[Rfam]
RNA sequence: AUUAAAAAUGGGCAAACUCUCCGAAAGGAUAGGGCGCAAAGCUGCGGGUCUACAGCCAAUAUAUGGCCAUGACAGCCGGGUUGCCGCU
Numbered sequence: 001a002u003u004a005a006a007a008a009u010g011g012g013c014a015a016a017c018u019c020u021c022c023g024a025a026a027g028g029a030u031a032g033g034g035c036g037c038a039a040a041g042c043u044g045c046g047g048g049u050c051u052a053c054a055g056c057c058a059a060u061a062u063a064u065g066g067c068c069a070u071g072a073c074a075g076c077c078g079g080g081u082u083g084c085c086g087c088u
Stems, first nucleotide, its partner, number of pairs: 012037002017032002020029003040082004045078003048073003055067004
RNA: c-di-GMP-I riboswitch aptamer